[Rfam]
RNA sequence: AACUUCUUUUUCGUGUCUUAUGAUGAAGCUUCAUAGGGCAGAUUCUGAGCUGAGAAAUUAAAUUUCUCUCCACUGAUACUCUCUAUAUGCCAUCUGAAGACACUAAGUAU
Numbered sequence: 001a002a003c004u005u006c007u008u009u010u011u012c013g014u015g016u017c018u019u020a021u022g023a024u025g026a027a028g029c030u031u032c033a034u035a036g037g038g039c040a041g042a043u044u045c046u047g048a049g050c051u052g053a054g055a056a057a058u059u060a061a062a063u064u065u066c067u068c069u070c071c072a073c074u075g076a077u078a079c080u081c082u083c084u085a086u087a088u089g090c091c092a093u094c095u096g097a098a099g100a101c102a103c104u105a106a107g108u109a110u
Stems, first nucleotide, its partner, number of pairs: 010106002013103006028093001032089003036082003041077001044076002047073001049071001052068005

The family of this 110-nucleotide RNA sequence from Aegotheles bennettii is "Small nucleolar RNA SNORD90". A reference for the family is Huttenhofer et al. (2001), "RNomics: an experimental approach that identifies 201 candidates for novel, small, non-messenger RNAs in mouse", EMBO J. From the family's description: snoRNA HBII-295 belongs to the family of C/D snoRNAs. It is the human orthologue of the mouse MBII-295 and has no identified RNA target. The match comes from Rfam's covariance-model search (57 bits).